[Rfam]
RNA: mir-34 microRNA precursor family
Nucleotides: 072
Base pairs, nucleotide, nucleotide: 003070004069005068006067009064010063012061013060014059015058017056018055021052022051024050025049026048027047028046029045030044031043
Number, partner (000 for none) and nucleotide at each position: 001000g002000g003070c004069a005068u006067g007000u008000u009064g010063g011000c012061a013060g014059u015058g016000u017056g018055g019000u020000u021052a022051g023000c024050u025049g026048g027047u028046u029045g030044u031043g032000a033000c034000g035000u036000c037000a038000g039000c040000a041000u042000a043031c044030a045029c046028g047027g048026c049025c050024a051022c052021u053000u054000c055018c056017c057000u058015c059014a060013c061012u062000g063010c064009c065000c066000u067006c068005a069004u070003g071000a072000c